[Rfam]
RNA sequence: GAGUGAGGUAGAGGCGCGAAAACCAUGAGUACCUCCCAGAGAUCGGGUAUCUAUGAAGGGCAGGAAAAGGGGAAUUCGCCGAAGUGUGAAGAGCGACCCGUGCUUUUCAUGCUGGGCUUGCGUUGAACAAGCGCAGGACUGUCAUCCAGGCAAUGGCCAGUUGCUGGAUGGAGAGCUAUCUCACGG
Numbered sequence: 001g002a003g004u005g006a007g008g009u010a011g012a013g014g015c016g017c018g019a020a021a022a023c024c025a026u027g028a029g030u031a032c033c034u035c036c037c038a039g040a041g042a043u044c045g046g047g048u049a050u051c052u053a054u055g056a057a058g059g060g061c062a063g064g065a066a067a068a069g070g071g072g073a074a075u076u077c078g079c080c081g082a083a084g085u086g087u088g089a090a091g092a093g094c095g096a097c098c099c100g101u102g103c104u105u106u107u108c109a110u111g112c113u114g115g116g117c118u119u120g121c122g123u124u125g126a127a128c129a130a131g132c133g134c135a136g137g138a139c140u141g142u143c144a145u146c147c148a149g150g151c152a153a154u155g156g157c158c159a160g161u162u163g164c165u166g167g168a169u170g171g172a173g174a175g176c177u178a179u180c181u182c183a184c185g186g
Base pairs, nucleotide, nucleotide: 006181007180008179009178010177011176016079017078018077019076020075023072024071032064033063034062035060036059037058083113084112085111086110087109088108089107090106091105092104093103094102114140115139117137118136119135120134121133122132123131124130142171143170144169145168146167147166148165
Dot-bracket structure: .....((((((....(((((..((.......((((((....................))).)))......))..)))))...((((((((((((.......))))))))))))((.((((((((.....)))))))).)).(((((((................)))))))....)))))).....
A member of the RNA family "Lysine riboswitch aptamer" from Brevibacillus panacihumi, 186 nucleotides long.